This 84-nucleotide sequence from Enterobacter cancerogenus belongs to the Rfam family "Peptidase-S11 RNA". Pairs were carried over by alignment from the consensus structure, which is taken from published work. The source organism's lineage runs through Bacteria, Gammaproteobacteria, Enterobacterales, Enterobacteriaceae and Enterobacter cancerogenus.

RNA sequence: GCUAUGAUGCCGAAGCCAGCCUGCAUUUACCCAUCCAUGCAGGCGGUGUACGUCAUUACGUGCGUGAAUAAUUACCAGAAGUCU
Numbered sequence: 001g002c003u004a005u006g007a008u009g010c011c012g013a014a015g016c017c018a019g020c021c022u023g024c025a026u027u028u029a030c031c032c033a034u035c036c037a038u039g040c041a042g043g044c045g046g047u048g049u050a051c052g053u054c055a056u057u058a059c060g061u062g063c064g065u066g067a068a069u070a071a072u073u074a075c076c077a078g079a080a081g082u083c084u
Stems, first nucleotide, its partner, number of pairs: 015047003019044008048063006
By type it is a cis-regulatory element.